[Rfam]
Rfam assigns this 71-nucleotide RNA sequence from Phascolarctobacterium sp. CAG:266 to the family "tRNA".
About the family: Transfer RNA (tRNA) molecules are approximately 80 nucleotides in length.
The match comes from Rfam's covariance-model search (63 bits).
The family's RNA type in Rfam is transfer RNA.

RNA sequence: UCCGGGAUAGUGUAAUGGUAGCACAAAUGACUCUGGAUCAUUUUGUCUGGGUUCGAGUCCUAGUCCCGGAG
Numbered sequence: 001u002c003c004g005g006g007a008u009a010g011u012g013u014a015a016u017g018g019u020a021g022c023a024c025a026a027a028u029g030a031c032u033c034u035g036g037a038u039c040a041u042u043u044u045g046u047c048u049g050g051g052u053u054c055g056a057g058u059c060c061u062a063g064u065c066c067c068g069g070a071g
Base pairs, nucleotide, nucleotide: 001070002069003068004067005066006065007064010024011023012022013021026042027041028040029039030038047063048062049061050060051059